The family of this 86-nucleotide RNA from Pseudolycoriella hygida is "mir-275 microRNA precursor family". Pairs were carried over by alignment from the consensus structure, which was predicted with RNAalifold. Its family is annotated with miRNA-mediated post-transcriptional gene silencing and RISC complex in the Gene Ontology.
RNA sequence: UUAUCAUGUCCUACUCGCGCUAACCAGAGACCGAGACUGUGUUUUGAUUAGUCAGGUACCUGAAGUAGCGCGCGUAGUGCAGGAUG
Numbered sequence: 001u002u003a004u005c006a007u008g009u010c011c012u013a014c015u016c017g018c019g020c021u022a023a024c025c026a027g028a029g030a031c032c033g034a035g036a037c038u039g040u041g042u043u044u045u046g047a048u049u050a051g052u053c054a055g056g057u058a059c060c061u062g063a064a065g066u067a068g069c070g071c072g073c074g075u076a077g078u079g080c081a082g083g084a085u086g
Stems, first nucleotide, its partner, number of pairs: 009079001011077002014074001016072007030057003035053004